[Rfam]
RNA sequence: AGAUUUUAAGGGAAUGAGGUUCUCCCGUGGAGUAUUCCAAAAGCGCAUUUUGCUGAUGACUUCUGUGUAAAA
Numbered sequence: 001a002g003a004u005u006u007u008a009a010g011g012g013a014a015u016g017a018g019g020u021u022c023u024c025c026c027g028u029g030g031a032g033u034a035u036u037c038c039a040a041a042a043g044c045g046c047a048u049u050u051u052g053c054u055g056a057u058g059a060c061u062u063c064u065g066u067g068u069a070a071a072a
Base pairs, nucleotide, nucleotide: 010026011025012024013023016063017062018061019060020059021058045053046052
Dot-bracket structure: .........[[[[..((((((.]]]]..................((.....))....)))))).........
Rfam assigns this 72-nucleotide sequence from Clostridium sp. D5 to the family "Fluoride riboswitch aptamer (crcB RNA motif)". The organism belongs to Clostridium, within Bacteria.